[Rfam]
RNA: bZIP non canonical Hac1/Xbp1 intron
RNA sequence: UGCUACCCCGGACGUGACACAACAUCCUGCUGCGAUGUUGUGCGACCUGCAGUGUCAGUCCGCGGAAGCA
Number, nucleotide and partner (000 for none) at each position: 001u070002g069003c068004u067005a000006c065007c064008c000009c062010g061011g060012a059013c058014g000015u000016g000017a000018c000019a000020c000021a039022a038023c037024a036025u035026c034027c000028u000029g000030c000031u000032g000033c000034g026035a025036u024037g023038u022039u021040g000041u000042g000043c000044g056045a055046c054047c000048u000049g000050c000051a000052g000053u000054g046055u045056c044057a000058g013059u012060c011061c010062g009063c000064g007065g006066a000067a004068g003069c002070a001